[Rfam]
RNA sequence: AUUGAAAAAGGCAAACCUGUCGAAAGGCAGGGACGCAAAGCCACGGGUCUAAAGUUUCAUGCUAUGGCAGCCGGGCCGUCAAUG
Numbered sequence: 001a002u003u004g005a006a007a008a009a010g011g012c013a014a015a016c017c018u019g020u021c022g023a024a025a026g027g028c029a030g031g032g033a034c035g036c037a038a039a040g041c042c043a044c045g046g047g048u049c050u051a052a053a054g055u056u057u058c059a060u061g062c063u064a065u066g067g068c069a070g071c072c073g074g075g076c077c078g079u080c081a082a083u084g
Stems, first nucleotide, its partner, number of pairs: 003081002011036002016031006034070001040076003044073003047068003
RNA: c-di-GMP-I-GGC riboswitch aptamer